[Rfam]
RNA sequence: AUAAAUAUUUACAUUAUACCGUAGACAGUAGGUGCUAUGCUAGCUUAAUUUCCUACCGAGGUGUGUCUGGAUAAAUAAUAAAUUUUCUCUUUUUAGAGAAUUAUUGUGACAGUCAUAAACCUUCGCGUCUACUUGAUGUGGAGGUUUUCGUUUGAUUAA
Number, nucleotide and partner (000 for none) at each position: 001a000002u000003a000004a000005a000006u000007a000008u000009u000010u000011a000012c000013a000014u000015u000016a000017u000018a000019c000020c000021g000022u000023a000024g000025a000026c000027a000028g056029u055030a054031g053032g052033u000034g044035c043036u042037a000038u000039g000040c000041u000042a036043g035044c034045u000046u000047a000048a000049u000050u000051u000052c032053c031054u030055a029056c028057c000058g000059a000060g000061g000062u000063g000064u000065g000066u000067c000068u000069g000070g000071a000072u000073a000074a000075a000076u000077a000078a000079u000080a000081a000082a000083u000084u000085u000086u000087c000088u000089c000090u000091u000092u000093u000094u000095a000096g000097a000098g000099a000100a000101u000102u000103a000104u000105u000106g000107u000108g000109a000110c000111a000112g000113u000114c000115a000116u000117a000118a000119a000120c144121c143122u142123u141124c140125g139126c138127g137128u136129c135130u000131a000132c000133u000134u000135g129136a128137u127138g126139u125140g124141g123142a122143g121144g120145u000146u000147u000148u000149c000150g000151u000152u000153u000154g000155a000156u000157u000158a000159a000

Rfam assigns this 159-nucleotide RNA sequence from Gracilibacillus boraciitolerans to the family "Ribosomal protein L10 leader". Lineage of the source: Bacteria > Bacillota > Bacilli > Bacillaceae > Gracilibacillus boraciitolerans. From the family's description: This family is a putative r-protein leader autoregulatory structure found in B. subtilis and other low-GC Gram-positive bacteria. Rfam classes the family as a cis-regulatory leader. It scores 84 bits against the family's covariance model. Its family is annotated with regulation of gene expression in the Gene Ontology.